[Rfam]
RNA sequence: CCCCGUGGUCCCCAGUGCAGCUCCCGGAUGAGCUCGCAGUAUUUUCCUUAUAUGAUCAGGCCCCACUGCUGGCGGCGCCGCUUGCCUGGAGCCUGAGAGGAUUAUGAAAACGUGUUGGGCGAGGUGGGGCCAGGGGACCGGGGG
Numbered sequence: 001c002c003c004c005g006u007g008g009u010c011c012c013c014a015g016u017g018c019a020g021c022u023c024c025c026g027g028a029u030g031a032g033c034u035c036g037c038a039g040u041a042u043u044u045u046c047c048u049u050a051u052a053u054g055a056u057c058a059g060g061c062c063c064c065a066c067u068g069c070u071g072g073c074g075g076c077g078c079c080g081c082u083u084g085c086c087u088g089g090a091g092c093c094u095g096a097g098a099g100g101a102u103u104a105u106g107a108a109a110a111c112g113u114g115u116u117g118g119g120c121g122a123g124g125u126g127g128g129g130c131c132a133g134g135g136g137a138c139c140g141g142g143g144g
Stems, first nucleotide, its partner, number of pairs: 001144003006140008020130005056096006063089002068085002071082004
Description:
Shown here is a 144-nucleotide RNA sequence from Equus caballus, a member of the family "small Cajal body-specific RNA 17". Rfam 15.1 lists 262 matches to the family in 128 species. The match comes from Rfam's covariance-model search (148 bits). By type it is a small Cajal body RNA.